[Rfam]
RNA sequence: AUAAAUAACACAAAUGUUUUUGCUACUAGUUUGCAGGCUGGUAGCAUUCCUUUCUAACUACCUUAGGUAGUCUGCGAU
Numbered sequence: 001a002u003a004a005a006u007a008a009c010a011c012a013a014a015u016g017u018u019u020u021u022g023c024u025a026c027u028a029g030u031u032u033g034c035a036g037g038c039u040g041g042u043a044g045c046a047u048u049c050c051u052u053u054c055u056a057a058c059u060a061c062c063u064u065a066g067g068u069a070g071u072c073u074g075c076g077a078u
Stems, first nucleotide, its partner, number of pairs: 022045009032076005058070005
The record is a 78-nucleotide RNA, which matches "Cyanobacterial ribosomal protein S1 leader" in Rfam. About the family: cyano-S1 is a ncRNA recognized in the 5-prime region of genes encoding 30S ribosomal protein S1, it has been proposed as an cis regulation element. It is one of the family's seed sequences. For this family Rfam cites "Identification of 22 candidate structured RNAs in bacteria using the CMfinder comparative genomics pipeline" (Weinberg et al., Nucleic Acids Res, 2007). The family's consensus secondary structure is taken from published work.